[Rfam]
RNA sequence: CCACAUCCAGAAACAAGUAAUCAAGAAUAGGCCGCGCUGGCAGGAAACAGCCUAUCCUGGAUUACUUGAAUCAGGCUGAGG
Numbered sequence: 001c002c003a004c005a006u007c008c009a010g011a012a013a014c015a016a017g018u019a020a021u022c023a024a025g026a027a028u029a030g031g032c033c034g035c036g037c038u039g040g041c042a043g044g045a046a047a048c049a050g051c052c053u054a055u056c057c058u059g060g061a062u063u064a065c066u067u068g069a070a071u072c073a074g075g076c077u078g079a080g081g
Stems, first nucleotide, its partner, number of pairs: 002080001004078002007075002010072002014068009024058002027055006
mir-26 microRNA precursor family: an 81-nucleotide sequence from Chanos chanos. Rfam links the family to the GO terms miRNA-mediated post-transcriptional gene silencing and RISC complex. For this family Rfam cites "Identification of tissue-specific microRNAs from mouse" (Lagos-Quintana et al., Curr Biol, 2002).